[Rfam]
RNA: Small nucleolar RNA U109
RNA sequence: CUGCAUAGCUGUUGCAACUACCUUCUCUGCUGUGAGGAGUGUAGACAAUUCAGUCAUGCUACAGCAGAUGAGUAGAGUUAACAGGGCCACCAGCCUCUCAAGAUCAGGCUGAGUCGGUAGUAUAAAACUCUGACACUC
Numbered sequence: 001c002u003g004c005a006u007a008g009c010u011g012u013u014g015c016a017a018c019u020a021c022c023u024u025c026u027c028u029g030c031u032g033u034g035a036g037g038a039g040u041g042u043a044g045a046c047a048a049u050u051c052a053g054u055c056a057u058g059c060u061a062c063a064g065c066a067g068a069u070g071a072g073u074a075g076a077g078u079u080a081a082c083a084g085g086g087c088c089a090c091c092a093g094c095c096u097c098u099c100a101a102g103a104u105c106a107g108g109c110u111g112a113g114u115c116g117g118u119a120g121u122a123u124a125a126a127a128c129u130c131u132g133a134c135a136c137u138c
Stems, first nucleotide, its partner, number of pairs: 003059004008054001017040003021036001023034001074131004086118002090113001091111006